[Rfam]
RNA sequence: GCUCUGCUAUCGUUACGGCGUAGCAGGCCGACCUAAAAUCUUAUGGUCAGCCGUGUUGUCCUGCUUCGGCGAAUACCUUUGGGGGUCUGGUAGAGCGCUUAGUAGUCACUAUGUUGUGACGAACAGCGCGGCCAGC
Numbered sequence: 001g002c003u004c005u006g007c008u009a010u011c012g013u014u015a016c017g018g019c020g021u022a023g024c025a026g027g028c029c030g031a032c033c034u035a036a037a038a039u040c041u042u043a044u045g046g047u048c049a050g051c052c053g054u055g056u057u058g059u060c061c062u063g064c065u066u067c068g069g070c071g072a073a074u075a076c077c078u079u080u081g082g083g084g085g086u087c088u089g090g091u092a093g094a095g096c097g098c099u100u101a102g103u104a105g106u107c108a109c110u111a112u113g114u115u116g117u118g119a120c121g122a123a124c125a126g127c128g129c130g131g132c133c134a135g136c
Base pairs, nucleotide, nucleotide: 001028002027004026005025006024007023008022009021010020012019013018062071063070064069085136087135088134089133090132091131096128097127098126099125105120106119107118108117109116
RNA: Bacteriophage Diversity-Generating Retroelement RNA